[Rfam]
RNA sequence: UGCCUCGUUAUUCAGCAAAUAGACACAACUCACUGUGUGUCUGAAAUCGAACAACGUGGCUAGAGGAGUAACAGGUUAUGCUUUCCUCGCUGCAAAGCUAAUUGCAGUGGUGACAAUGAGGCCUGUAACAGGC
Number, nucleotide and partner (000 for none) at each position: 001u000002g060003c059004c058005u000006c056007g055008u054009u000010a000011u000012u000013c000014a000015g000016c000017a000018a000019a000020u043021a042022g041023a040024c039025a038026c037027a000028a000029c000030u000031c000032a000033c000034u000035g000036u000037g026038u025039g024040u023041c022042u021043g020044a000045a000046a000047u000048c000049g000050a000051a000052c000053a000054a008055c007056g006057u000058g004059g003060c002061u000062a000063g000064a000065g000066g000067a000068g000069u000070a000071a126072c125073a124074g123075g122076u000077u000078a000079u000080g000081c000082u000083u000084u000085c112086c000087u110088c109089g108090c107091u000092g000093c000094a000095a000096a000097g000098c000099u000100a000101a000102u000103u000104g000105c000106a000107g090108u089109g088110g087111u000112g085113a000114c000115a000116a000117u000118g000119a000120g000121g000122c075123c074124u073125g072126u071127a000128a000129c000130a000131g000132g000133c000

Small nucleolar RNA SNORA1: a 133-nucleotide sequence from Apteryx australis. Its family is annotated with nucleolus and RNA processing in the Gene Ontology. Rfam's curators write: ACA1 is a member of the H/ACA class of snoRNA that guide the sites of modification of uridines to pseudouridines. It is annotated as an H/ACA-box small nucleolar RNA.